[Rfam]
Nucleotides: 097
Base pairs, nucleotide, nucleotide: 008083009082010081011046012045013044014043016040017032018031019030020029021028052078053077054076059072060071061070062069
Number, partner (000 for none) and nucleotide at each position: 001000a002000c003000a004000c005000c006000a007000u008083g009082c010081u011046a012045g013044g014043g015000g016040u017032g018031c019030c020029u021028g022000a023000a024000a025000a026000a027000c028021c029020a030019g031018g032017c033000u034000g035000a036000g037000a038000u039000c040016a041000a042000a043014c044013c045012c046011u047000u048000a049000a050000c051000a052078c053077c054076u055000g056000a057000g058000u059072c060071u061070g062069g063000g064000u065000a066000a067000u068000a069062c070061c071060a072059g073000c074000g075000g076054a077053g078052g079000g080000a081010a082009g083008c084000u085000g086000u087000u088000u089000a090000u091000u092000u093000g094000a095000g096000g097000a